[Rfam]
RNA sequence: CUGACAGAAGAGAGUGAGCACAUGCAGGCAAUUUGUAUAAGGGUAUACCUAUGCCGGUGCGUGCUCACCUCUCUUUCUGUCAG
Number, nucleotide and partner (000 for none) at each position: 001c083002u082003g081004a080005c079006a078007g077008a076009a075010g073011a072012g071013a000014g068015u067016g066017a065018g064019c063020a062021c061022a000023u059024g058025c057026a000027g000028g000029c000030a000031a000032u000033u000034u000035g000036u000037a000038u000039a000040a000041g000042g000043g000044u000045a000046u000047a000048c000049c000050u000051a000052u000053g000054c000055c000056g000057g025058u024059g023060c000061g021062u020063g019064c018065u017066c016067a015068c014069c000070u000071c012072u011073c010074u000075u009076u008077c007078u006079g005080u004081c003082a002083g001
Background
This 83-nucleotide sequence from Vitis rotundifolia belongs to the Rfam family "mir-156 microRNA precursor family". Gene Ontology terms of the family: miRNA-mediated post-transcriptional gene silencing and RISC complex. A reference for the family is Reinhart et al. (2002), "MicroRNAs in plants", Genes Dev. Rfam's curators write: This family represents the plant microRNA (miRNA) precursor mir-156. It scores 69 bits against the family's covariance model.